[Rfam]
RNA sequence: UUCUAUUAUUUGCAAUCAGUAACAAAGAUUCAUCCUUGUGUCCAUCAAGCAACAAGGAGAAUCUUUGUCACUUAGUGUAAUUAAUAGCUGCGC
Numbered sequence: 001u002u003c004u005a006u007u008a009u010u011u012g013c014a015a016u017c018a019g020u021a022a023c024a025a026a027g028a029u030u031c032a033u034c035c036u037u038g039u040g041u042c043c044a045u046c047a048a049g050c051a052a053c054a055a056g057g058a059g060a061a062u063c064u065u066u067g068u069c070a071c072u073u074a075g076u077g078u079a080a081u082u083a084a085u086a087g088c089u090g091c092g093c
Base pairs, nucleotide, nucleotide: 003087004086005085006084007083008082010080011079012078013077014076016074018072019071020070022068023067024066025065026064027063028062029061030060031059033058034057035056036055037054038053039052040050041049
mir-802 microRNA precursor family: a 93-nucleotide RNA sequence from Equus caballus. Rfam's curators put it in the seed alignment. Lineage of the source: Eukaryota > Mammalia > Theria > Equidae > Equus. Its family is annotated with miRNA-mediated post-transcriptional gene silencing and RISC complex in the Gene Ontology. The literature on the family includes a 2010 paper in Genes Dev by Chiang et al., "Mammalian microRNAs: experimental evaluation of novel and previously annotated genes".